Source information
The record is a 100-nucleotide RNA, which matches "L4-Archaeoglobi ribosomal protein leades" in Rfam. The literature on the family includes a 2020 paper in BMC Microbiol by Eckert and Weinberg, "Discovery of 20 novel ribosomal leader candidates in bacteria and archaea". Pairs were carried over by alignment from the consensus structure, which is taken from published work. It is one of the family's seed sequences. It is annotated as a cis-regulatory leader.
[Rfam]
RNA sequence: CUGAAGGGCGCGUUCGGGUCAAUUGCGGCAUGCAACACCCGAUCUCCCUCCACCAGCCUCCCGGUAUGGAGGUUGUGGAGGGGGAGCGCGUGACCAUCAG
Dot-bracket structure: ((((...((((((.((((....(((((...)))))..)))).(((((...(.(((....................))).)))))))))))).....))))
Numbered sequence: 001c002u003g004a005a006g007g008g009c010g011c012g013u014u015c016g017g018g019u020c021a022a023u024u025g026c027g028g029c030a031u032g033c034a035a036c037a038c039c040c041g042a043u044c045u046c047c048c049u050c051c052a053c054c055a056g057c058c059u060c061c062c063g064g065u066a067u068g069g070a071g072g073u074u075g076u077g078g079a080g081g082g083g084g085a086g087c088g089c090g091u092g093a094c095c096a097u098c099a100g
Stems, first nucleotide, its partner, number of pairs: 001100004008091006015041004023035005043085005051080001053078003